[Rfam]
RNA sequence: CCACUCUGGAAAGAGGAUUCCGCGCGCGCAAGCGUGCGACGACAUCCCGCCGAAGGUGAAAGCCACGUUUGAGGUCCUUGACCAUACGCGCGGUGAAACUCUCAGGCUCGCGACAGAGGGGGA
Numbered sequence: 001c002c003a004c005u006c007u008g009g010a011a012a013g014a015g016g017a018u019u020c021c022g023c024g025c026g027c028g029c030a031a032g033c034g035u036g037c038g039a040c041g042a043c044a045u046c047c048c049g050c051c052g053a054a055g056g057u058g059a060a061a062g063c064c065a066c067g068u069u070u071g072a073g074g075u076c077c078u079u080g081a082c083c084a085u086a087c088g089c090g091c092g093g094u095g096a097a098a099c100u101c102u103c104a105g106g107c108u109c110g111c112g113a114c115a116g117a118g119g120g121g122g123a
Base pairs, nucleotide, nucleotide: 001121002120004118005117006116007115008114015047016046017045018044049107050106051105052103053102056101058099062094063093
RNA: Glycine riboswitch aptamer
Organism: Glaciihabitans tibetensis